[Rfam]
RNA sequence: CUGAUCAAGCCGCCUGGGUCGACGUUGGUGCAACGAGCCCUGUUCCUAUGGCCGAUGUAAUGCCCAUAGGAAGGUGGAUCACGGUCAG
Numbered sequence: 001c002u003g004a005u006c007a008a009g010c011c012g013c014c015u016g017g018g019u020c021g022a023c024g025u026u027g028g029u030g031c032a033a034c035g036a037g038c039c040c041u042g043u044u045c046c047u048a049u050g051g052c053c054g055a056u057g058u059a060a061u062g063c064c065c066a067u068a069g070g071a072a073g074g075u076g077g078a079u080c081a082c083g084g085u086c087a088g
Base pairs, nucleotide, nucleotide: 001088002087003086004085005084008079010077011076012075013074016040017039018038023035024034025033026032027031043072044071045070046069047068048067049066050065051064053062